[Rfam]
Record summary:
Rfam assigns this 88-nucleotide RNA to the family "L4-Archaeoglobi ribosomal protein leades". Rfam classes the family as a cis-regulatory leader.
RNA sequence: CUGACCGGUACGCAUGGGUCGACGUUUGAACAAACGAGCCCGUUCCAAAUGCUCUAAUAAAAUGAGCCUCUGGAUGCGUUAUUGUCAG
Numbered sequence: 001c002u003g004a005c006c007g008g009u010a011c012g013c014a015u016g017g018g019u020c021g022a023c024g025u026u027u028g029a030a031c032a033a034a035c036g037a038g039c040c041c042g043u044u045c046c047a048a049a050u051g052c053u054c055u056a057a058u059a060a061a062a063u064g065a066g067c068c069u070c071u072g073g074a075u076g077c078g079u080u081a082u083u084g085u086c087a088g
Base pairs, nucleotide, nucleotide: 001088002087003086004085005084010079011078012077013076015042016041017040018039023036024035025034026033027032044074045073046072047071049069051067052066053065054064